[Rfam]
RNA sequence: UGGCAACGAUGAUGACAGGAAUUGUCGCUGGAUGUAAUGUUCCAUUGCCACAUGGAGACACCAGUCCCUCUAAACUGAUGUUGCCU
Numbered sequence: 001u002g003g004c005a006a007c008g009a010u011g012a013u014g015a016c017a018g019g020a021a022u023u024g025u026c027g028c029u030g031g032a033u034g035u036a037a038u039g040u041u042c043c044a045u046u047g048c049c050a051c052a053u054g055g056a057g058a059c060a061c062c063a064g065u066c067c068c069u070c071u072a073a074a075c076u077g078a079u080g081u082u083g084c085c086u
Stems, first nucleotide, its partner, number of pairs: 002085006
This 86-nucleotide RNA sequence from Arenaria interpres belongs to the Rfam family "Small nucleolar RNA SNORD127". A search with the family's covariance model found it, with a score of 75 bits. Rfam 15.1 lists 541 matches to the family in 527 species. On this family, see Yang et al., Nucleic Acids Res 2006: "snoSeeker: an advanced computational package for screening of guide and orphan snoRNA genes in the human genome". Rfam links the family to the GO terms nucleolus and RNA processing.